RNA: MIR2118 microRNA precursor family
Organism: Leersia perrieri
RNA sequence: GUUGGGAAGAGGAAGAAAAGAACAUCUAAGAGCAUUGGGCAUGGGAACAUGGAGGAAAGCAUGAUCCAUUACUUCCCUCUAAUAUUAUGGGUCACAAAAUGUUUCUGUGUUUUCCAAUGCCUCCCAUGCCUAUUGUCCUUAGAUGUUCAUUCCACUUCCUUCUGGCU
Number, nucleotide and partner (000 for none) at each position: 001g000002u000003u000004g000005g000006g000007a000008a000009g158010a157011g156012g155013a000014a000015g152016a151017a150018a000019a000020g148021a147022a146023c000024a000025u143026c142027u141028a140029a139030g138031a000032g136033c135034a134035u000036u132037g131038g130039g129040c128041a127042u126043g125044g124045g123046a122047a000048c119049a118050u117051g000052g000053a000054g115055g114056a113057a112058a111059g110060c109061a000062u000063g000064a000065u000066c000067c000068a000069u000070u000071a000072c000073u000074u000075c000076c000077c000078u000079c000080u000081a000082a000083u000084a000085u000086u000087a000088u000089g000090g000091g000092u000093c000094a000095c000096a000097a000098a000099a000100u000101g000102u000103u000104u000105c000106u000107g000108u000109g060110u059111u058112u057113u056114c055115c054116a000117a050118u049119g048120c000121c000122u046123c045124c044125c043126a042127u041128g040129c039130c038131u037132a036133u000134u034135g033136u032137c000138c030139u029140u028141a027142g026143a025144u000145g000146u022147u021148c020149a000150u017151u016152c015153c000154a000155c012156u011157u010158c009159c000160u000161u000162c000163u000164g000165g000166c000167u000